[Rfam]
RNA: malK-I RNA
RNA sequence: UUCAGGCGGGAGCGUCUACUCCACAUAAAUAGGCGUUCCCCCUAAAAGAAAAGGAGGAAAUGGCCCCGGCUCGGGCUGCGGCAGCGUGGAGACCUGUCGUAAUGCGGCUAACACCGCGAGAGCGCCUCUUGCGGAGGCAGGGCGCUUAGAGCAAAAUCGAAUGGCA
Numbered sequence: 001u002u003c004a005g006g007c008g009g010g011a012g013c014g015u016c017u018a019c020u021c022c023a024c025a026u027a028a029a030u031a032g033g034c035g036u037u038c039c040c041c042c043u044a045a046a047a048g049a050a051a052a053g054g055a056g057g058a059a060a061u062g063g064c065c066c067c068g069g070c071u072c073g074g075g076c077u078g079c080g081g082c083a084g085c086g087u088g089g090a091g092a093c094c095u096g097u098c099g100u101a102a103u104g105c106g107g108c109u110a111a112c113a114c115c116g117c118g119a120g121a122g123c124g125c126c127u128c129u130u131g132c133g134g135a136g137g138c139a140g141g142g143c144g145c146u147u148a149g150a151g152c153a154a155a156a157u158c159g160a161a162u163g164g165c166a
Base pairs, nucleotide, nucleotide: 006042008040009039010038011037012036013035014034015033016032017031018030063076064075065074066073069152070151071150072149077101078100079099080098081097082096083095084094086093087092104117105116106115107114120147121146122145123144124143125142126141127140130139131138132137